[Rfam]
RNA: Bacterial large subunit ribosomal RNA, nucleotides 1758 to 2126
RNA sequence: CGGGAGAACUGUGGUUAAGGAACUCGGCAAAUUACUUCCGUAACUUCGGGAUAAGGAAGGCCCAGUUAGGGUGAGAAGGACUUGCUCCUUUGAUGCCCGAGUGGGUCGCAGAGAAUCGGGGGAAGCGACUGUUUACUAAAAACACAGGAGCGUGCUAAGUCGCUAAGACGACGUAUACGCUCUGACGCCUGCCCGGUGCCGGAAGGUUACGGGGAGAGGUUAGCCCUUUAGGGCGAAGCUUUGAACCUAAGCCCCGGUAAACGGCCGCCGUAACUAUAACGGUGCUAAGGUAGCGAAAUUCCUUGUCGGGUAAGUUCCGACCCGCACGAAUGGCGUAACGACUUCCCCACUGUCUCAACCACAGACCCG
Number, nucleotide and partner (000 for none) at each position: 001c369002g368003g367004g366005a000006g000007a000008a000009c364010u363011g362012u361013g360014g359015u358016u357017a000018a355019g354020g353021a000022a000023c000024u000025c000026g000027g000028c000029a000030a000031a000032u000033u000034a000035c059036u058037u057038c056039c055040g000041u000042a000043a000044c049045u000046u000047c000048g000049g044050g000051a000052u000053a000054a000055g039056g038057a037058a036059g035060g106061c105062c104063c103064a102065g000066u000067u000068a000069g000070g000071g000072u000073g000074a000075g000076a000077a000078g000079g000080a000081c000082u000083u000084g000085c000086u000087c000088c000089u000090u000091u000092g000093a000094u000095g000096c000097c000098c000099g000100a000101g000102u064103g063104g062105g061106u060107c111108g000109c000110a000111g107112a000113g000114a000115a000116u000117c000118g000119g348120g347121g346122g345123a344124a343125g342126c340127g339128a000129c000130u144131g143132u142133u000134u000135a000136c000137u000138a000139a000140a000141a000142a132143c131144a130145c000146a000147g183148g182149a181150g180151c179152g178153u177154g176155c173156u000157a000158a000159g169160u168161c167162g000163c000164u000165a000166a000167g161168a160169c159170g000171a000172c000173g155174u000175a000176u154177a153178c152179g151180c150181u149182c148183u147184g000185a000186c335187g334188c333189c332190u000191g265192c264193c263194c000195g000196g262197u261198g258199c257200c256201g255202g254203a000204a000205g253206g252207u251208u000209a000210c000211g247212g246213g000214g000215a000216g242217a241218g240219g239220u238221u000222a000223g234224c233225c232226c231227u000228u000229u000230a000231g226232g225233g224234c223235g000236a000237a000238g220239c219240u218241u217242u216243g000244a000245a000246c212247c211248u000249a000250a000251g207252c206253c205254c202255c201256g200257g199258u198259a000260a000261a197262c196263g193264g192265c191266c284267g283268c282269c281270g280271u279272a000273a000274c000275u000276a000277u000278a000279a271280c270281g269282g268283u267284g266285c289286u000287a000288a000289g285290g000291u000292a000293g000294c000295g322296a000297a000298a000299u000300u000301c000302c000303u000304u000305g321306u320307c319308g318309g317310g316311u000312a000313a000314g000315u000316u310317c309318c308319g307320a306321c305322c295323c000324g000325c000326a000327c000328g000329a000330a000331u000332g189333g188334c187335g186336u000337a000338a000339c127340g126341a000342c125343u124344u123345c122346c121347c120348c119349a000350c000351u000352g000353u020354c019355u018356c000357a016358a015359c014360c013361a012362c011363a010364g009365a000366c004367c003368c002369g001